The record is a 47-nucleotide RNA sequence from Pyrus pyrifolia, which matches "Plastid-rpl16 group II-D1 intron" in Rfam.
Rfam's curators write: Plastid-rpl16 is a non-coding RNA (ncRNA) recognised in plastids.
Its family is annotated with Group II intron splicing in the Gene Ontology.
The source organism's lineage runs through Eukaryota, Tracheophyta, eudicotyledons, Rosales and Pyrus.
The family's consensus secondary structure was predicted with LocARNA.

[Rfam]
RNA sequence: AAGAGCCCCGAGCCAAUAAAGACUGAGAAGGUUGACUCAAGAAUCAA
Numbered sequence: 001a002a003g004a005g006c007c008c009c010g011a012g013c014c015a016a017u018a019a020a021g022a023c024u025g026a027g028a029a030g031g032u033u034g035a036c037u038c039a040a041g042a043a044u045c046a047a
Stems, first nucleotide, its partner, number of pairs: 007041001010038003014034004